[Rfam]
miR-430 microRNA precursor family: a 64-nucleotide RNA from Lates calcarifer. Its family is annotated with RISC complex and miRNA-mediated post-transcriptional gene silencing in the Gene Ontology. Its Rfam clan is "mir-290 clan".

RNA sequence: ACCCUAACACAGGCACAGACAUGAAUUUGGAAAGCAGUAAGUGCUAUUUGUUGGGGUAGUGUUG
Numbered sequence: 001a002c003c004c005u006a007a008c009a010c011a012g013g014c015a016c017a018g019a020c021a022u023g024a025a026u027u028u029g030g031a032a033a034g035c036a037g038u039a040a041g042u043g044c045u046a047u048u049u050g051u052u053g054g055g056g057u058a059g060u061g062u063u064g
Stems, first nucleotide, its partner, number of pairs: 001057005007051003011047001012045005019038002